[Rfam]
RNA sequence: AGCUGAUGCAUAUGGCGGUCACCUCCCAGUUCCGCCGCAUCAGCUGUUCCCCUCUGGAGGUUAGUUUGACCUUCACACUUCAUGGGCCGCGAUAUUCGCAGGCCCAUUUUU
Numbered sequence: 001a002g003c004u005g006a007u008g009c010a011u012a013u014g015g016c017g018g019u020c021a022c023c024u025c026c027c028a029g030u031u032c033c034g035c036c037g038c039a040u041c042a043g044c045u046g047u048u049c050c051c052c053u054c055u056g057g058a059g060g061u062u063a064g065u066u067u068g069a070c071c072u073u074c075a076c077a078c079u080u081c082a083u084g085g086g087c088c089g090c091g092a093u094a095u096u097c098g099c100a101g102g103c104c105c106a107u108u109u110u111u
Base pairs, nucleotide, nucleotide: 001045002044003043004042005041007039008038009037015035016034017033018032055075056074057073058072059071060070061069083106084105085104086103087102088101089099090098091097092096
Rfam assigns this 111-nucleotide RNA sequence from Agrobacterium tumefaciens to the family "Alphaproteobacterial ar15".
The pairing is the family consensus, mapped onto this sequence.
Its family is annotated with protein binding in the Gene Ontology.
Rfam's curators put it in the seed alignment.
By type it is a small RNA.
On this family, see Torres-Quesada et al., PLoS One 2013: "Independent activity of the homologous small regulatory RNAs AbcR1 and AbcR2 in the legume symbiont Sinorhizobium meliloti".